RNA: Enterococcus sRNA 64
RNA sequence: UAAGGGAUACCUCCGGUUCUGUUUUGGUGUGGUUACUUUAACUUUACCAGAAGGUAUCCCUUUUGCGU
Numbered sequence: 001u002a003a004g005g006g007a008u009a010c011c012u013c014c015g016g017u018u019c020u021g022u023u024u025u026g027g028u029g030u031g032g033u034u035a036c037u038u039u040a041a042c043u044u045u046a047c048c049a050g051a052a053g054g055u056a057u058c059c060c061u062u063u064u065g066c067g068u
Base pairs, nucleotide, nucleotide: 002062003061004060005059006058007057008056009055010054011053012052014050016048021043023041024040026038027036028035